[Rfam]
RNA: skipping-rope RNA
RNA sequence: AUUGUUUGAGGUGGAAAAUUUCGUCCCCGUCCACACGCCGAUGGUUUGACAGGGAGCAAUCCCGAGAGAUGCAGGAGAAAUGGACGCCUGCCAAACAAC
Numbered sequence: 001a002u003u004g005u006u007u008g009a010g011g012u013g014g015a016a017a018a019u020u021u022c023g024u025c026c027c028c029g030u031c032c033a034c035a036c037g038c039c040g041a042u043g044g045u046u047u048g049a050c051a052g053g054g055a056g057c058a059a060u061c062c063c064g065a066g067a068g069a070u071g072c073a074g075g076a077g078a079a080a081u082g083g084a085c086g087c088c089u090g091c092c093a094a095a096c097a098a099c
Stems, first nucleotide, its partner, number of pairs: 002098007011034005023085004036066001037045003071091005